[Rfam]
RNA: Purine riboswitch aptamer
Organism: Bacillus sp. THAF10
Nucleotides: 102
Base pairs, nucleotide, nucleotide: 018088019087020086021085022084023083024082025081030048031047032046033045034044035043058078059077060076061075062074063073
Number, partner (000 for none) and nucleotide at each position: 001000a002000u003000a004000a005000c006000u007000u008000u009000a010000u011000a012000g013000u014000u015000c016000a017000a018088a019087u020086c021085u022084c023083g024082u025081a026000u027000a028000a029000a030048u031047u032046u033045g034044g035043g036000a037000a038000u039000a040000u041000g042000g043035c044034c045033c046032a047031a048030a049000a050000g051000u052000c053000u054000c055000u056000a057000c058078c059077a060076g061075g062074c063073u064000a065000c066000c067000g068000u069000a070000a071000a072000c073063a074062g075061c076060u077059u078058g079000a080000c081025u082024a083023c084022g085021a086020g087019g088018u089000a090000a091000u092000a093000g094000g095000a096000a097000a098000u099000u100000a101000g102000u